[Rfam]
RNA sequence: GCCUUUGAAUCGUCGCGGCUUUCAUCCUAUAUUGGGCGUGCCGGUUCGCCGGCUAUGGCAAUAAACGGGCGGUACAAUAAGCCAUUCGGACCCGGGGGCGGUACCCGGCGCCUCCACCAGGAACGCUGCUGCAGCCGAUCGCAGCGCUGCUGAUGGGGGCGAAACAGGAUCGACGAGGGUGUAAAAACCGUACUUUUGCCCGGCAUGAUACCACCGUUAUCGGGUCAAAUUGUUAGUUGCAAACGACAACUACGCAGAGGCACGUCUCGCUGCCUAAUGGCGGUGCGACAGCUUCACCUGAACUCCUAGCCGGUUUGCUCGGCUAGGCGGGGUCCGGAGGCACCUGGCAACAGAAGCCUCCACU
Numbered sequence: 001g002c003c004u005u006u007g008a009a010u011c012g013u014c015g016c017g018g019c020u021u022u023c024a025u026c027c028u029a030u031a032u033u034g035g036g037c038g039u040g041c042c043g044g045u046u047c048g049c050c051g052g053c054u055a056u057g058g059c060a061a062u063a064a065a066c067g068g069g070c071g072g073u074a075c076a077a078u079a080a081g082c083c084a085u086u087c088g089g090a091c092c093c094g095g096g097g098g099c100g101g102u103a104c105c106c107g108g109c110g111c112c113u114c115c116a117c118c119a120g121g122a123a124c125g126c127u128g129c130u131g132c133a134g135c136c137g138a139u140c141g142c143a144g145c146g147c148u149g150c151u152g153a154u155g156g157g158g159g160c161g162a163a164a165c166a167g168g169a170u171c172g173a174c175g176a177g178g179g180u181g182u183a184a185a186a187a188c189c190g191u192a193c194u195u196u197u198g199c200c201c202g203g204c205a206u207g208a209u210a211c212c213a214c215c216g217u218u219a220u221c222g223g224g225u226c227a228a229a230u231u232g233u234u235a236g237u238u239g240c241a242a243a244c245g246a247c248a249a250c251u252a253c254g255c256a257g258a259g260g261c262a263c264g265u266c267u268c269g270c271u272g273c274c275u276a277a278u279g280g281c282g283g284u285g286c287g288a289c290a291g292c293u294u295c296a297c298c299u300g301a302a303c304u305c306c307u308a309g310c311c312g313g314u315u316u317g318c319u320c321g322g323c324u325a326g327g328c329g330g331g332g333u334c335c336g337g338a339g340g341c342a343c344c345u346g347g348c349a350a351c352a353g354a355a356g357c358c359u360c361c362a363c364u
Stems, first nucleotide, its partner, number of pairs: 040053005057200005067193001069191005082179002086176003092108005109161007201216003206227003211223002330345004336361006
Shown here is a 364-nucleotide RNA, a member of the family "Alphaproteobacteria transfer-messenger RNA". A search with the family's covariance model found it, with a score of 300 bits. From the family's description: Bacterial tmRNA, also known as 10Sa RNA or SsrA, is named for its dual tRNA and mRNA-like properties. Its role is to liberate the mRNA from a stalled ribosome. The family's RNA type in Rfam is non-coding RNA gene.